[Rfam]
RNA sequence: UUCUUAUCAAGAGUAGGUGGAGGGACCAGCCCGAUGAUACCCGGCAACCGACUGAAAAGCACGGUGCUAAUUCUUGCGGAAGCGAUUAUUCGUAAUCAAUUCUGAGAGAUGAGAG
Number, nucleotide and partner (000 for none) at each position: 001u115002u114003c113004u112005u111006a110007u109008c108009a000010a000011g000012a000013g042014u000015a000016g041017g040018u039019g000020g000021a000022g032023g031024g030025a000026c076027c000028a074029g073030c024031c023032c022033g000034a000035u000036g000037a000038u000039a018040c017041c016042c013043g068044g067045c066046a065047a000048c064049c063050g060051a000052c000053u057054g000055a000056a000057a053058a000059g000060c050061a000062c000063g049064g048065u046066g045067c044068u043069a000070a000071u000072u107073c029074u028075u000076g026077c104078g103079g102080a101081a100082g000083c000084g000085a000086u000087u000088a000089u000090u000091c000092g000093u000094a000095a000096u000097c000098a000099a000100u081101u080102c079103u078104g077105a000106g000107a072108g008109a007110u006111g005112a004113g003114a002115g001